[Rfam]
RNA sequence: AAUUACGUUCAUAGGAACAAAGAGAAGCAGAUCUAUUCUAUAUCCGAUAAGUACCAAUAUGCAAUGGGU
Numbered sequence: 001a002a003u004u005a006c007g008u009u010c011a012u013a014g015g016a017a018c019a020a021a022g023a024g025a026a027g028c029a030g031a032u033c034u035a036u037u038c039u040a041u042a043u044c045c046g047a048u049a050a051g052u053a054c055c056a057a058u059a060u061g062c063a064a065u066g067g068g069u
Base pairs, nucleotide, nucleotide: 003022004021007018008017009016010015043068044067045066051060052059053058